RNA sequence: GGCCCCGACGUAUAAGGCUUUUAAGACUUGGAGAGAAGAAACUUCCCAACCCAACCCCAACCCCUGCCCCGGCCUCACACAGGGCCCCGUCACCCACACGGGUGAGAUCACCAACUCGACUGGAUUUUCGCCUGGUUGGCAGGCAUAUGCUCGCCCCCACAACCCCAGACAUGCGUCGGCCCCCGGCCGGGACUCGCAAUCCCGAUCGAGGGCCUGACCACCGAGGAAGAAAGCCCCUUCCCG
Number, nucleotide and partner (000 for none) at each position: 001g219002g000003c000004c000005c000006c000007g073008a000009c071010g070011u000012a000013u000014a000015a000016g000017g000018c000019u000020u000021u000022u000023a000024a000025g000026a000027c000028u000029u000030g000031g000032a000033g000034a000035g000036a000037a000038g000039a000040a000041a000042c000043u000044u000045c000046c000047c000048a000049a000050c000051c000052c000053a000054a000055c000056c000057c000058c000059a000060a000061c000062c000063c000064c000065u000066g000067c000068c000069c000070c010071g009072g000073c007074c000075u000076c000077a000078c000079a000080c000081a000082g000083g000084g000085c000086c000087c000088c000089g000090u105091c104092a103093c102094c101095c100096a000097c000098a000099c000100g095101g094102g093103u092104g091105a090106g000107a000108u000109c000110a000111c000112c000113a000114a000115c000116u000117c000118g000119a000120c000121u000122g152123g151124a000125u000126u000127u000128u000129c000130g000131c000132c000133u000134g000135g000136u000137u000138g000139g000140c000141a000142g000143g000144c000145a000146u000147a000148u000149g000150c000151u123152c122153g000154c000155c000156c000157c000158c000159a000160c000161a000162a000163c000164c000165c000166c000167a000168g000169a000170c000171a000172u000173g000174c000175g000176u000177c000178g214179g213180c212181c211182c210183c000184c208185g207186g000187c000188c000189g203190g202191g201192a200193c000194u000195c000196g000197c000198a000199a000200u192201c191202c190203c189204g000205a000206u000207c185208g184209a000210g182211g181212g180213c179214c178215u000216g000217a000218c000219c001220a000221c000222c000223g000224a000225g241226g240227a239228a238229g237230a000231a000232a000233g000234c000235c000236c000237c229238u228239u227240c226241c225242c000243g000

Streptomyces sRNA 4677: a 243-nucleotide RNA from Streptomyces sp. Ncost-T10-10d. A reference for the family is Hindra et al. (2014), "Complex intra-operonic dynamics mediated by a small RNA in Streptomyces coelicolor", PLoS One. Lineage of the source: Bacteria > Actinomycetes > Kitasatosporales > Streptomycetaceae > Streptomyces. Located in the intergenic region between anti-sigma factor SCO4677 gene and a putative regulatory protein gene SCO4676. scr4677 expression requires the SCO4677 activity and scr4677 sRNA itself seem to affect the levels of the SCO4676-associated transcripts.